[Rfam]
RNA sequence: ACUCUAGCUGACUAAGGCGCUUCUCUUUCUAAAAAGAGCGCUUUACUUAGCCAGUGUAG
Dot-bracket structure: ((.((.((((...(((((((((.(.......)...)))))))))...)))).)).))..
Numbered sequence: 001a002c003u004c005u006a007g008c009u010g011a012c013u014a015a016g017g018c019g020c021u022u023c024u025c026u027u028u029c030u031a032a033a034a035a036g037a038g039c040g041c042u043u044u045a046c047u048u049a050g051c052c053a054g055u056g057u058a059g
Stems, first nucleotide, its partner, number of pairs: 001057002004054002007051004014044009024032001